The family of this 64-nucleotide sequence from Trifolium subterraneum is "MIR5291 microRNA precursor family". The organism belongs to Trifolium, within Eukaryota. The match comes from Rfam's covariance-model search (64 bits). Rfam 15.1 lists 168 matches to the family in 5 species.
[Rfam]
RNA sequence: GAUGGAUUUAAUCCAAUCCAUUAACUAAUUUUUUUACUUGUGAAUGGAUUGGAUGAAUCCAUUA
Numbered sequence: 001g002a003u004g005g006a007u008u009u010a011a012u013c014c015a016a017u018c019c020a021u022u023a024a025c026u027a028a029u030u031u032u033u034u035u036a037c038u039u040g041u042g043a044a045u046g047g048a049u050u051g052g053a054u055g056a057a058u059c060c061a062u063u064a
Stems, first nucleotide, its partner, number of pairs: 004060005011054012025040001027038001029036001